[Rfam]
RNA: Small nucleolar RNA SNORA14
Organism: Microcaecilia unicolor
RNA sequence: AUGCAUUCCUAAAACCCCUUAGCAGUCUUCACUGUAGCUGCCAAGACAAGCAGGAAUUGCUAAAACAAACCUGUGAGACCUCCAAAGUGCAGAGAGUGAUGGUGUCUCUGUGCUAUUUCACAUCUUACACAAUU
Numbered sequence: 001a002u003g004c005a006u007u008c009c010u011a012a013a014a015c016c017c018c019u020u021a022g023c024a025g026u027c028u029u030c031a032c033u034g035u036a037g038c039u040g041c042c043a044a045g046a047c048a049a050g051c052a053g054g055a056a057u058u059g060c061u062a063a064a065a066c067a068a069a070c071c072u073g074u075g076a077g078a079c080c081u082c083c084a085a086a087g088u089g090c091a092g093a094g095a096g097u098g099a100u101g102g103u104g105u106c107u108c109u110g111u112g113c114u115a116u117u118u119c120a121c122a123u124c125u126u127a128c129a130c131a132a133u134u
Stems, first nucleotide, its partner, number of pairs: 003060003006056001010050001018045003022041001024039003064134002072127002075124002086114007094106002